[Rfam]
RNA sequence: GAUCUUAAGUGCAUUUGACGACCCGUCUAGUGUGGUGAACUCUUGAGUUGAUAGUGUUGAACUCUGAGCUGGUGAUCUAAAG
Numbered sequence: 001g002a003u004c005u006u007a008a009g010u011g012c013a014u015u016u017g018a019c020g021a022c023c024c025g026u027c028u029a030g031u032g033u034g035g036u037g038a039a040c041u042c043u044u045g046a047g048u049u050g051a052u053a054g055u056g057u058u059g060a061a062c063u064c065u066g067a068g069c070u071g072g073u074g075a076u077c078u079a080a081a082g
Base pairs, nucleotide, nucleotide: 001077002076003075004074008070009069011033012032013031014030015029017027018026019025020024040068041067042066045064046063047062048061049060051058

The record is an 82-nucleotide RNA sequence from Arabidopsis thaliana, which matches "Small nucleolar RNA ncR4" in Rfam.
For this family Rfam cites "Promoter-based identification of novel non-coding RNAs reveals the presence of dicistronic snoRNA-miRNA genes in Arabidopsis thaliana" (Qu et al., BMC Genomics, 2015).
NCBI's taxonomy places the organism under Eukaryota, Streptophytina, Spermatophyta, Gunneridae, Arabidopsis.
Rfam classes the family as a C/D-box small nucleolar RNA.